[Rfam]
RNA sequence: CUCUUAUCAAGAGAGGCGGAGGGACUGGCCCGAUGAAGCCCGGCAACCAGCAAUCUAUUGCAAGGUGCUAAUUCCAGCAGCAUAUGCUGACAGAUGAGAG
Number, nucleotide and partner (000 for none) at each position: 001c100002u099003c098004u097005u096006a095007u094008c093009a000010a000011g000012a000013g041014a000015g040016g039017c038018g000019g000020a000021g031022g030023g029024a000025c077026u076027g075028g074029c023030c022031c021032g000033a000034u000035g000036a000037a000038g017039c016040c015041c013042g069043g068044c067045a066046a000047c065048c064049a000050g061051c060052a059053a058054u000055c000056u000057a000058u053059u052060g051061c050062a000063a000064g048065g047066u045067g044068c043069u042070a000071a000072u000073u092074c028075c027076a026077g025078c089079a088080g087081c086082a000083u000084a000085u000086g081087c080088u079089g078090a000091c000092a073093g008094a007095u006096g005097a004098g003099a002100g001
Shown here is a 100-nucleotide RNA sequence from Fonticella tunisiensis, a member of the family "SAM riboswitch aptamer (S box leader)". Pairs were carried over by alignment from the consensus structure, which is taken from published work. It scores 94 bits against the family's covariance model.